[Rfam]
Annotation:
Rfam assigns this 304-nucleotide sequence from Nocardioides ganghwensis to the family "raiA RNA". Pairs were carried over by alignment from the consensus structure, which is taken from published work. The family's RNA type in Rfam is riboswitch.
RNA sequence: UCCGCCCGGGUCCGUGGUUGCGUCACGGAGAGGGCUGCGCGCAGCACCGUCAGGUGCCUCGUCAGGUCCGACCCGCGGCAAGCCGAUGCCAGUCGCAGGCGAAACGGUCCACGUAAGUCCACGGUCGCGCCGCUGCCCAGCAGCGCCGUGCCCGCCGGACGAUCACGGUGCGGCUUAGAAGUAAGUCCUGCCCCGUCGCCGACACCAGAUGUGUCGGAUGCCGGGAGAAGGCCAGUAGUGACGGAGAAGUUGCGAACGCUUCAGCAGGCGGUUGUGGGGUCGAAGACCAGGUCGGCCGGGCGGG
Numbered sequence: 001u002c003c004g005c006c007c008g009g010g011u012c013c014g015u016g017g018u019u020g021c022g023u024c025a026c027g028g029a030g031a032g033g034g035c036u037g038c039g040c041g042c043a044g045c046a047c048c049g050u051c052a053g054g055u056g057c058c059u060c061g062u063c064a065g066g067u068c069c070g071a072c073c074c075g076c077g078g079c080a081a082g083c084c085g086a087u088g089c090c091a092g093u094c095g096c097a098g099g100c101g102a103a104a105c106g107g108u109c110c111a112c113g114u115a116a117g118u119c120c121a122c123g124g125u126c127g128c129g130c131c132g133c134u135g136c137c138c139a140g141c142a143g144c145g146c147c148g149u150g151c152c153c154g155c156c157g158g159a160c161g162a163u164c165a166c167g168g169u170g171c172g173g174c175u176u177a178g179a180a181g182u183a184a185g186u187c188c189u190g191c192c193c194c195g196u197c198g199c200c201g202a203c204a205c206c207a208g209a210u211g212u213g214u215c216g217g218a219u220g221c222c223g224g225g226a227g228a229a230g231g232c233c234a235g236u237a238g239u240g241a242c243g244g245a246g247a248a249g250u251u252g253c254g255a256a257c258g259c260u261u262c263a264g265c266a267g268g269c270g271g272u273u274g275u276g277g278g279g280u281c282g283a284a285g286a287c288c289a290g291g292u293c294g295g296c297c298g299g300g301c302g303g304g
Stems, first nucleotide, its partner, number of pairs: 001304009012295003015289005086275003089099001091175007108168002113163001118158002166282001187268005192225004229261004238253002